Annotation
mir-399 microRNA precursor family: a 118-nucleotide RNA sequence from Lupinus albus. From the family's description: mir-399 was identified in both Arabidopsis thaliana and Oryza sativa computationally and was later experimentally verified. mir-399 is thought to target mRNAs coding for a phosphatase transporter. The mature sequence is excised from the 3' arm of the hairpin. Rfam links the family to the GO terms miRNA-mediated post-transcriptional gene silencing and RISC complex. The organism belongs to Lupinus, within Eukaryota. It scores 60 bits against the family's covariance model.

RNA sequence: GGGUGCAUCACUGGGCAAUGACUUCUUUGGCUGUUGGCACUUCAACUGCAUCUCAUUUAGGUGAUUAUGCUGAGAAGCUUAGCUCACUGCCAAAGAAGAUUUGCCCUGCAAUUCACCC
Numbered sequence: 001g002g003g004u005g006c007a008u009c010a011c012u013g014g015g016c017a018a019u020g021a022c023u024u025c026u027u028u029g030g031c032u033g034u035u036g037g038c039a040c041u042u043c044a045a046c047u048g049c050a051u052c053u054c055a056u057u058u059a060g061g062u063g064a065u066u067a068u069g070c071u072g073a074g075a076a077g078c079u080u081a082g083c084u085c086a087c088u089g090c091c092a093a094a095g096a097a098g099a100u101u102u103g104c105c106c107u108g109c110a111a112u113u114c115a116c117c118c
Stems, first nucleotide, its partner, number of pairs: 005114001007112002011108001013106006022098004028092004033087002036084003